[Rfam]
RNA sequence: AUCAACCGCUCUGGAGAGCCGCCCCUGCGGGGGCGCACCGAAGGGGACCUGCCGCAGCAUGACACCAGCGUCAGCCGGGGCAGGAUAAUCUCUCAGGUUACGGGACAGGGUUUUCGGC
Numbered sequence: 001a002u003c004a005a006c007c008g009c010u011c012u013g014g015a016g017a018g019c020c021g022c023c024c025c026u027g028c029g030g031g032g033g034c035g036c037a038c039c040g041a042a043g044g045g046g047a048c049c050u051g052c053c054g055c056a057g058c059a060u061g062a063c064a065c066c067a068g069c070g071u072c073a074g075c076c077g078g079g080g081c082a083g084g085a086u087a088a089u090c091u092c093u094c095a096g097g098u099u100a101c102g103g104g105a106c107a108g109g110g111u112u113u114u115c116g117g118c
Stems, first nucleotide, its partner, number of pairs: 008111006020035004037098003040094002044092003
RNA: Glycine riboswitch aptamer
Organism: Alkalispirochaeta americana